[Rfam]
The family of this 79-nucleotide sequence from Drosophila navojoa is "mir-973 microRNA precursor family".

Nucleotides: 079
Stems, first nucleotide, its partner, number of pairs: 003077006010070003014067004019062001022059005029054006
Number, partner (000 for none) and nucleotide at each position: 001000u002000c003077a004076c005075u006074u007073u008072u009000c010070g011069u012068g013000u014067u015066c016065g017064a018000u019062g020000u021000u022059u023058g024057a025056a026055c027000u028000u029054g030053g031052a032051u033050u034049u035000u036000c037000g038000a039000g040000c041000u042000a043000u044000g045000c046000a047000a048000u049034a050033a051032a052031u053030c054029u055026g056025u057024u058023c059022a060000u061000u062019c063000c064017u065016c066015g067014a068012c069011a070010c071000u072008a073007a074006a075005g076004g077003u078000u079000u
The match comes from Rfam's covariance-model search (78 bits).